[Rfam]
RNA sequence: CUCCGAUAAGAGCACAGCCAGAUUCUUCUGGUGUCGCAAAGUCACGGGUUCGCUUUUAAAGAGCGGAUGGCCGGUCUGCCGAA
Numbered sequence: 001c002u003c004c005g006a007u008a009a010g011a012g013c014a015c016a017g018c019c020a021g022a023u024u025c026u027u028c029u030g031g032u033g034u035c036g037c038a039a040a041g042u043c044a045c046g047g048g049u050u051c052g053c054u055u056u057u058a059a060a061g062a063g064c065g066g067a068u069g070g071c072c073g074g075u076c077u078g079c080c081g082a083a
Base pairs, nucleotide, nucleotide: 012037013036017032018031019030020029021028022027040077041076043074045073046072047071048068049067050066051065052064053063054062